The family of this 95-nucleotide RNA sequence from Aurantiacibacter gangjinensis is "Bacterial small signal recognition particle RNA". The family is grouped with related families in Rfam's "SRP clan". Pairs were carried over by alignment from the consensus structure, which is taken from published work. On this family, see Rosenblad et al., Nucleic Acids Res 2003: "SRPDB: Signal Recognition Particle Database". NCBI's taxonomy places the organism under Bacteria, Pseudomonadati, Alphaproteobacteria, Sphingomonadales, Aurantiacibacter.

RNA sequence: GUGGGAGUCGGGUGGACGUUCGCGUUUGCUCACCGGGUCAGGUCCGGAAGGAAGCAGCCCAGGUAAAUGGCAGCGGGUCGCUCGGCUCCUAUUUC
Numbered sequence: 001g002u003g004g005g006a007g008u009c010g011g012g013u014g015g016a017c018g019u020u021c022g023c024g025u026u027u028g029c030u031c032a033c034c035g036g037g038u039c040a041g042g043u044c045c046g047g048a049a050g051g052a053a054g055c056a057g058c059c060c061a062g063g064u065a066a067a068u069g070g071c072a073g074c075g076g077g078u079c080g081c082u083c084g085g086c087u088c089c090u091a092u093u094u095c
Stems, first nucleotide, its partner, number of pairs: 004089011017075004024068007035060004043052003